The family of this 598-nucleotide part of an RNA from Trichinella sp. T9 is "Eukaryotic large subunit ribosomal RNA". The match comes from Rfam's covariance-model search (2742 bits).
RNA sequence: GGUCGGUCGGGCUGGGGCGCGAAGCGGGGCUGGGCGCGCGCCGCGGCUGGACGAGGCGCCGCCGCCCUCUCCCACGUCCGGGGAGACCCCCCGUCCUUUCCGCCCGGGCCCGCCCUCCCCUCUUCCCCGCGGGGCCCCGUCGUCCCCCGCGUCGUCGCCACCUCUCUUCCCCCCUCCUUCUUCCCGUCGGGGGGCGGGUCGGGGGUCGGCGCGCGGCGCGGGCUCCGGGGCGGCGGGUCCAACCCCGCGGGGGUUCCGGAGCGGGAGGAACCAGCGGGCCCCCGGUGGGGCGGGGGGCCCGGACACUCGGGGGGGCCGGCGGCGGCGGCGACUCUGGACGCGAGCCGGGCCCUUCCCGUGGAUCGCCUCAGCUGCGGCGGGCGUCGCGGCCGCUCCCGGGGAGCCCGGCGGGUGCCGGCGCGGGUCCCCUCCCCGCGGGGCCUCGCUCCACCCCCCCAUCGCCUCUCCCGAGGUGCGUGGCGGGGGCGGGCGGGUGUCCCGCGCGUGUGGGGGGAACCUCCGCGUCGGUGUUCCCCCGCCGGGUCCGCCCCCCGGGCCGCGGUUUUCCGCGCGGCGCCUCGCCUCGGCCGGCGCCUAG
Dot-bracket structure: .(((((((((.((.((((.....(.(((((.......(((((.((......)).)))))....))).)).)....)))).)).....................................................................................................................................................................................................................................................................................................................................................................................................................................................................................................................)))))))))......
Numbered sequence: 001g002g003u004c005g006g007u008c009g010g011g012c013u014g015g016g017g018c019g020c021g022a023a024g025c026g027g028g029g030c031u032g033g034g035c036g037c038g039c040g041c042c043g044c045g046g047c048u049g050g051a052c053g054a055g056g057c058g059c060c061g062c063c064g065c066c067c068u069c070u071c072c073c074a075c076g077u078c079c080g081g082g083g084a085g086a087c088c089c090c091c092c093g094u095c096c097u098u099u100c101c102g103c104c105c106g107g108g109c110c111c112g113c114c115c116u117c118c119c120c121u122c123u124u125c126c127c128c129g130c131g132g133g134g135c136c137c138c139g140u141c142g143u144c145c146c147c148c149g150c151g152u153c154g155u156c157g158c159c160a161c162c163u164c165u166c167u168u169c170c171c172c173c174c175u176c177c178u179u180c181u182u183c184c185c186g187u188c189g190g191g192g193g194g195c196g197g198g199u200c201g202g203g204g205g206u207c208g209g210c211g212c213g214c215g216g217c218g219c220g221g222g223c224u225c226c227g228g229g230g231c232g233g234c235g236g237g238u239c240c241a242a243c244c245c246c247g248c249g250g251g252g253g254u255u256c257c258g259g260a261g262c263g264g265g266a267g268g269a270a271c272c273a274g275c276g277g278g279c280c281c282c283c284g285g286u287g288g289g290g291c292g293g294g295g296g297g298c299c300c301g302g303a304c305a306c307u308c309g310g311g312g313g314g315g316c317c318g319g320c321g322g323c324g325g326c327g328g329c330g331a332c333u334c335u336g337g338a339c340g341c342g343a344g345c346c347g348g349g350c351c352c353u354u355c356c357c358g359u360g361g362a363u364c365g366c367c368u369c370a371g372c373u374g375c376g377g378c379g380g381g382c383g384u385c386g387c388g389g390c391c392g393c394u395c396c397c398g399g400g401g402a403g404c405c406c407g408g409c410g411g412g413u414g415c416c417g418g419c420g421c422g423g424g425u426c427c428c429c430u431c432c433c434c435g436c437g438g439g440g441c442c443u444c445g446c447u448c449c450a451c452c453c454c455c456c457c458a459u460c461g462c463c464u465c466u467c468c469c470g471a472g473g474u475g476c477g478u479g480g481c482g483g484g485g486g487c488g489g490g491c492g493g494g495u496g497u498c499c500c501g502c503g504c505g506u507g508u509g510g511g512g513g514g515a516a517c518c519u520c521c522g523c524g525u526c527g528g529u530g531u532u533c534c535c536c537c538g539c540c541g542g543g544u545c546c547g548c549c550c551c552c553c554g555g556g557c558c559g560c561g562g563u564u565u566u567c568c569g570c571g572c573g574g575c576g577c578c579u580c581g582c583c584u585c586g587g588c589c590g591g592c593g594c595c596u597a598g
Stems, first nucleotide, its partner, number of pairs: 002592009012082002015079004024071001026069002028066003038059005044053002